[Rfam]
RNA sequence: UGAAACGCAGGGUCUUGCUGUCUAUUGUGAACUCGGCUCUCGAAAGCUUCAGGAAGAUUAUAUUCAUUGUUAUUGGGUGAACCUCUGUUGUUAAUUGUUUUUGGUGGCUGAAGGUUCAGUAAACGAUGACACAUUU
Numbered sequence: 001u002g003a004a005a006c007g008c009a010g011g012g013u014c015u016u017g018c019u020g021u022c023u024a025u026u027g028u029g030a031a032c033u034c035g036g037c038u039c040u041c042g043a044a045a046g047c048u049u050c051a052g053g054a055a056g057a058u059u060a061u062a063u064u065c066a067u068u069g070u071u072a073u074u075g076g077g078u079g080a081a082c083c084u085c086u087g088u089u090g091u092u093a094a095u096u097g098u099u100u101u102u103g104g105u106g107g108c109u110g111a112a113g114g115u116u117c118a119g120u121a122a123a124c125g126a127u128g129a130c131a132c133a134u135u136u
Base pairs, nucleotide, nucleotide: 005049007047011038012037014035017032064129065128066127067126068125069124070123071122078118079117080116081115082114083113084112
RNA: Small nucleolar RNA snoR74
Organism: Acer saccharum